Shown here is a 65-nucleotide RNA from Bacillus sp. J14TS2, a member of the family "Bacillaceae-1 RNA". A search with the family's covariance model found it, with a score of 36 bits.
[Rfam]
RNA sequence: GGUUAAGGAUCAAAGUCUAAAUUCGCAACAUCCUGUUGGCAGACUCAAAUGCGACGUCCUGUCGC
Numbered sequence: 001g002g003u004u005a006a007g008g009a010u011c012a013a014a015g016u017c018u019a020a021a022u023u024c025g026c027a028a029c030a031u032c033c034u035g036u037u038g039g040c041a042g043a044c045u046c047a048a049a050u051g052c053g054a055c056g057u058c059c060u061g062u063c064g065c
Stems, first nucleotide, its partner, number of pairs: 014045004026038004051065005

Taxonomically the source falls in Bacillus (Bacteria, Bacillati, Bacillota, Bacillaceae).
By type it is a small RNA.